A member of the RNA family "c-di-GMP-I riboswitch aptamer", 77 nucleotides long. Gene Ontology term of the family: cyclic-di-GMP binding.

[Rfam]
RNA sequence: AAGCUAGCAAGGCAAAGCUAGCAAGCUAGCGACGCAAAGCUAUCAAGCUAGCAACGCAAAGCUAAGAAGUUAUCAAC
Numbered sequence: 001a002a003g004c005u006a007g008c009a010a011g012g013c014a015a016a017g018c019u020a021g022c023a024a025g026c027u028a029g030c031g032a033c034g035c036a037a038a039g040c041u042a043u044c045a046a047g048c049u050a051g052c053a054a055c056g057c058a059a060a061g062c063u064a065a066g067a068a069g070u071u072a073u074c075a076a077c
Base pairs, nucleotide, nucleotide: 012035013034017030018029019028020027021026038071039070040069041068043067044066046063047062048061051057052056